[Rfam]
RNA sequence: UGAUGAAGCAUUGCACCCAGGGUCUGGUCUACCAGACAUUGUACCUGGAGCUUAUUUCUUUUUGUAAUUAAAAAAU
Numbered sequence: 001u002g003a004u005g006a007a008g009c010a011u012u013g014c015a016c017c018c019a020g021g022g023u024c025u026g027g028u029c030u031a032c033c034a035g036a037c038a039u040u041g042u043a044c045c046u047g048g049a050g051c052u053u054a055u056u057u058c059u060u061u062u063u064g065u066a067a068u069u070a071a072a073a074a075a076u
Stems, first nucleotide, its partner, number of pairs: 006053004017048004022037005
The family of this 76-nucleotide RNA sequence from Cottoperca gobio is "U1A polyadenylation inhibition element (PIE)".
By type it is a cis-regulatory element.